[Rfam]
RNA sequence: UUGUUAUUGGAUAAUGACUGUCACGUAUCAUAUCUGAUUGAUCAAUGAAAAUAAUAAUACAUUUUAUUUUUUAUGAAGUUGACAUCCAAUCUCAGAACAUGACACAUGACAAACAUCAUCC
Numbered sequence: 001u002u003g004u005u006a007u008u009g010g011a012u013a014a015u016g017a018c019u020g021u022c023a024c025g026u027a028u029c030a031u032a033u034c035u036g037a038u039u040g041a042u043c044a045a046u047g048a049a050a051a052u053a054a055u056a057a058u059a060c061a062u063u064u065u066a067u068u069u070u071u072u073a074u075g076a077a078g079u080u081g082a083c084a085u086c087c088a089a090u091c092u093c094a095g096a097a098c099a100u101g102a103c104a105c106a107u108g109a110c111a112a113a114c115a116u117c118a119u120c121c
Base pairs, nucleotide, nucleotide: 020110021109022108023107025105026104029101030100031099033097034095035094037090038089039088
RNA: MIR1520 microRNA precursor family